[Rfam]
RNA sequence: GAGACAUCCGAGCCGAAGCCCGACAGGGCACGGGGGAACCAAGUUCGUGGGGUGAAGCCGCGCAAGCGGCGGGGGCGCCUCUUGACCCUAACCCGGCAGCUAACCUCGCAGGCUAAACAAAGGGAGGAAUU
Numbered sequence: 001g002a003g004a005c006a007u008c009c010g011a012g013c014c015g016a017a018g019c020c021c022g023a024c025a026g027g028g029c030a031c032g033g034g035g036g037a038a039c040c041a042a043g044u045u046c047g048u049g050g051g052g053u054g055a056a057g058c059c060g061c062g063c064a065a066g067c068g069g070c071g072g073g074g075g076c077g078c079c080u081c082u083u084g085a086c087c088c089u090a091a092c093c094c095g096g097c098a099g100c101u102a103a104c105c106u107c108g109c110a111g112g113c114u115a116a117a118c119a120a121a122g123g124g125a126g127g128a129a130u131u
Stems, first nucleotide, its partner, number of pairs: 011114004018029003031108005040049002050094003058069004072088003
Rfam assigns this 131-nucleotide RNA sequence from Cohnella nanjingensis to the family "c-di-AMP riboswitch aptamer (ydaO/yuaA leader)". The match comes from Rfam's covariance-model search (90 bits). The pairing is the family consensus, mapped onto this sequence.